Rfam assigns this 77-nucleotide sequence from Manduca sexta to the family "mir-306 microRNA precursor family". On this family, see Stark et al., Genome Res 2007: "Systematic discovery and characterization of fly microRNAs using 12 Drosophila genomes".

[Rfam]
Nucleotides: 077
Stems, first nucleotide, its partner, number of pairs: 001077001003076003009071002012067001015064006023056004028051007
Number, partner (000 for none) and nucleotide at each position: 001077g002000c003076c004075g005074u006000g007000g008000c009071c010070g011000c012067c013000u014000c015064a016063g017062g018061u019060a020059c021000u022000a023056g024055g025054u026053g027000a028051c029050u030049c031048u032047g033046a034045g035000u036000g037000g038000c039000g040000u041000c042000g043000g044000u045034c046033u047032c048031a049030g050029a051028g052000c053026c054025g055024c056023c057000u058000c059020g060019u061018g062017c063016c064015u065000c066000a067012g068000c069000g070010c071009g072000g073000a074005a075004c076003g077001c
Rfam links the family to the GO terms miRNA-mediated post-transcriptional gene silencing and RISC complex. The base pairs follow the family's consensus structure, which was predicted with RNAalifold.